The family of this 98-nucleotide RNA sequence from Rotaria sp. Silwood2 is "Vault RNA".
RNA sequence: UGAUCAGCUUUGCUUUGUGGUUACUUCGUACCCAAUCAAUUUUCGAUUUUAUUGACGUUUGUUAAUUAUGCGAACCGCUGGCGUUAACUGAUCGUUUU
Numbered sequence: 001u002g003a004u005c006a007g008c009u010u011u012g013c014u015u016u017g018u019g020g021u022u023a024c025u026u027c028g029u030a031c032c033c034a035a036u037c038a039a040u041u042u043u044c045g046a047u048u049u050u051a052u053u054g055a056c057g058u059u060u061g062u063u064a065a066u067u068a069u070g071c072g073a074a075c076c077g078c079u080g081g082c083g084u085u086a087a088c089u090g091a092u093c094g095u096u097u098u
Stems, first nucleotide, its partner, number of pairs: 002093006012082003017078004025074005
Record summary: The literature on the family includes a 2009 paper in Mol Biol Evol by Stadler et al., "Evolution of Vault RNAs". The family's RNA type in Rfam is non-coding RNA gene.